[Rfam]
A member of the RNA family "nadA riboswitch", 90 nucleotides long. Rfam's curators put it in the seed alignment.
RNA sequence: GGCUGCAACAUCCCCGUGGAAGGGGAUUCUUCUGACGCAUUCGGCGGCAACGCCAGGCAAAUCGGCGGAAUCAGCGCAUCCACUGCAGAC
Numbered sequence: 001g002g003c004u005g006c007a008a009c010a011u012c013c014c015c016g017u018g019g020a021a022g023g024g025g026a027u028u029c030u031u032c033u034g035a036c037g038c039a040u041u042c043g044g045c046g047g048c049a050a051c052g053c054c055a056g057g058c059a060a061a062u063c064g065g066c067g068g069a070a071u072c073a074g075c076g077c078a079u080c081c082a083c084u085g086c087a088g089a090c
Stems, first nucleotide, its partner, number of pairs: 001090001003088005013076001014074001016083005022077001023075001025072006032065004